[Rfam]
RNA sequence: UAAAAAAAAAGGGAUGAAGCUCCCUUAUGAAUUGCUGAUAACGGCUGAUGGCUUCUACGAGAAA
Numbered sequence: 001u002a003a004a005a006a007a008a009a010a011g012g013g014a015u016g017a018a019g020c021u022c023c024c025u026u027a028u029g030a031a032u033u034g035c036u037g038a039u040a041a042c043g044g045c046u047g048a049u050g051g052c053u054u055c056u057a058c059g060a061g062a063a064a
Base pairs, nucleotide, nucleotide: 010025011024012023013022016055017054018053019052020051021050034045035044036043037042
RNA: Fluoride riboswitch aptamer (crcB RNA motif)
Organism: Thermoanaerobacterium sp. RBIITD